[Rfam]
Shown here is a 55-nucleotide RNA from Triplophysa rosa, a member of the family "U7 small nuclear RNA". NCBI's taxonomy places the organism under Eukaryota, Opisthokonta, Cobitoidei, Nemacheilidae, Triplophysa. A search with the family's covariance model found it, with a score of 40 bits.
RNA sequence: GGAAAUUAGCUCAUUUAGUAUUUGUCAAGUAGGUUUUCUAUAAAAGAGAACCCCC
Numbered sequence: 001g002g003a004a005a006u007u008a009g010c011u012c013a014u015u016u017a018g019u020a021u022u023u024g025u026c027a028a029g030u031a032g033g034u035u036u037u038c039u040a041u042a043a044a045a046g047a048g049a050a051c052c053c054c055c
Base pairs, nucleotide, nucleotide: 032052033051034050035049036048037047038046039045